[Rfam]
RNA: Lysine riboswitch aptamer
RNA sequence: AAAUUUGAUAGAGGCGCGGAUGCGACUAUAACUUACAGAGCUGGCGAGCGAUUGAUGUAUGUUAACAGCAAAUCUGCCGAACUGUUUUCUUAGGCAUAAGGAAAUGGUGGGCUGAUGGAGAAUAUCCAUUGGACUGUCUGCGAAUACGUAGAUGUGCUAUCUUAUUG
Number, nucleotide and partner (000 for none) at each position: 001a000002a000003a000004u000005u000006u000007g161008a160009u159010a158011g157012a000013g000014g000015c000016g077017c076018g075019g074020a073021u072022g000023c000024g069025a000026c000027u000028a000029u000030a000031a062032c061033u000034u059035a058036c057037a056038g000039a000040g000041c000042u000043g000044g000045c000046g000047a000048g000049c000050g000051a000052u000053u000054g000055a000056u037057g036058u035059a034060u000061g032062u031063u000064a000065a000066c000067a000068g000069c024070a000071a000072a021073u020074c019075u018076g017077c016078c000079g000080a000081a108082c107083u106084g105085u104086u103087u102088u101089c100090u099091u098092a097093g000094g000095c000096a000097u092098a091099a090100g089101g088102a087103a086104a085105u084106g083107g082108u081109g135110g134111g000112c132113u131114g130115a129116u128117g127118g126119a125120g000121a000122a000123u000124a000125u119126c118127c117128a116129u115130u114131g113132g112133a000134c110135u109136g000137u152138c151139u150140g149141c148142g147143a000144a000145u000146a000147c142148g141149u140150a139151g138152a137153u000154g000155u000156g000157c011158u010159a009160u008161c007162u000163u000164a000165u000166u000167g000